[Rfam]
RNA: SAM/SAH riboswitch aptamer
RNA sequence: AACCCGUCACAACGGCUUCCUGGCGUGACGGCUGACAUACAAUGGAGCA
Numbered sequence: 001a002a003c004c005c006g007u008c009a010c011a012a013c014g015g016c017u018u019c020c021u022g023g024c025g026u027g028a029c030g031g032c033u034g035a036c037a038u039a040c041a042a043u044g045g046a047g048c049a
Stems, first nucleotide, its partner, number of pairs: 004031007013022002015048003019045002